[Rfam]
RNA sequence: UGGGGCAUCGACAAGUGGUAAGUCAACGGUUUUUGAUACCGUCACUCCUAGGUUCGAAUCCUAGUGCCCCAG
Numbered sequence: 001u002g003g004g005g006c007a008u009c010g011a012c013a014a015g016u017g018g019u020a021a022g023u024c025a026a027c028g029g030u031u032u033u034u035g036a037u038a039c040c041g042u043c044a045c046u047c048c049u050a051g052g053u054u055c056g057a058a059u060c061c062u063a064g065u066g067c068c069c070c071a072g
Stems, first nucleotide, its partner, number of pairs: 001071007010024003026042005048064005
RNA: tRNA